[Rfam]
Nucleotides: 306
Stems, first nucleotide, its partner, number of pairs: 001040003004023006028037003043306004048301006056293002058290003062285003066281002069279010079264009089255003093252002099250008108238002111236005117229002120226001122224004127166001130163007138155007167172001174219005185210003192203003
Number, partner (000 for none) and nucleotide at each position: 001040g002039c003038c004023g005022g006021g007020c008019u009018c010000a011000g012000u013000u014000g015000c016000g017000a018009g019008a020007g021006u022005c023004u024000g025000u026000a027000a028037c029036c030035c031000g032000a033000g034000u035030g036029g037028g038003g039002g040001c041000c042000u043306a044305a045304a046303g047000u048301u049300g050299a051298u052297g053296g054000g055000a056293c057292g058290u059289u060288g061000g062285g063284c064283u065000u066281g067280c068000u069279u070278u071277a072276c073275u074274g075273g076272g077271u078270u079264g080263g081262a082261c083260a084259a085258g086257g087256g088000g089255u090254a091253g092000c093252u094251a095000g096000a097000a098000u099250c100249u101248g102247g103246c104245c105244a106243g107000c108238c109237c110000g111236u112235u113234c114233c115232a116000a117229g118228c119000a120226a121000a122224u123223a124222g125221u126000c127166g128000u129000a130163u131162c132161a133160g134159g135158a136157g137000a138155c139154u140153c141152g142151a143150a144149c145000g146000a147000a148000g149144g150143u151142u152141u153140g154139g155138g156000c157136c158135u159134c160133u161132u162131g163130g164000c165000u166127c167172c168000u169000a170000a171000a172167g173000u174219g175218g176217a177216g178215g179000g180000c181000u182000c183000c184000g185210c186209g187208u188000u189000a190000g191000g192203c193202u194201g195000g196000c197000u198000u199000c200000a201194c202193a203192g204000a205000g206000c207000a208187g209186c210185g211000a212000a213000a214000a215178c216177u217176u218175u219174c220000c221125g222124c223123u224122a225000c226120u227000g228118g229117c230000a231000g232115u233114g234113g235112a236111a237109g238108g239000a240000u241000a242000a243106c244105u245104g246103g247102c248101c249100a250099g251094u252093g253091c254090u255089g256087c257086u258085c259084u260083u261082g262081u263080c264079c265000g266000a267000c268000a269000a270078g271077a272076c273075u274074c275073a276072g277071u278070a279069g280067g281066u282000u283064g284063g285062c286000u287000c288060u289059a290058a291000c292057c293056g294000a295000a296053c297052c298051a299050u300049c301048a302000c303046c304045u305044u306043u

A member of the RNA family "Plant signal recognition particle RNA" from Hevea brasiliensis, 306 nucleotides long.
Its family is annotated with SRP-dependent cotranslational protein targeting to membrane, signal sequence recognition and signal recognition particle, endoplasmic reticulum targeting in the Gene Ontology.
The match comes from Rfam's covariance-model search (246 bits).
Rfam classes the family as a non-coding RNA gene.